[Rfam]
RNA sequence: AUUGGUCUUCGGGGCAGGGUGAAAUUCCCGACCGGCGGUGAUUCACGAUCGUUGUGAUUAGUCCGUGAGCUGCUUAAAUGUUUAAGUGGUUGAUCUGGUGAAAUUCCAGAGCCGACAGUAAAGUCUGGAUGGGAGAAGAUUGCA
Numbered sequence: 001a002u003u004g005g006u007c008u009u010c011g012g013g014g015c016a017g018g019g020u021g022a023a024a025u026u027c028c029c030g031a032c033c034g035g036c037g038g039u040g041a042u043u044c045a046c047g048a049u050c051g052u053u054g055u056g057a058u059u060a061g062u063c064c065g066u067g068a069g070c071u072g073c074u075u076a077a078a079u080g081u082u083u084a085a086g087u088g089g090u091u092g093a094u095c096u097g098g099u100g101a102a103a104u105u106c107c108a109g110a111g112c113c114g115a116c117a118g119u120a121a122a123g124u125c126u127g128g129a130u131g132g133g134a135g136a137a138g139a140u141u142g143c144a
Stems, first nucleotide, its partner, number of pairs: 003142008017029003031124002033114002035066004061112002069090003094110005116127003